[Rfam]
RNA sequence: ACAAUGAUACUUGCGCCGGCUGUCCGUCACGGGACAGGGCGCCCCGCCACAAGCAUGGGGGGAGGAUGAAAAAACUAUGG
Dot-bracket structure: ...........(((((......................))))(((.(((......))).)))((..........)))...
Rfam assigns this 80-nucleotide RNA from Acutalibacter sp. 1XD8-33 to the family "pemK RNA". Rfam classes the family as a cis-regulatory element.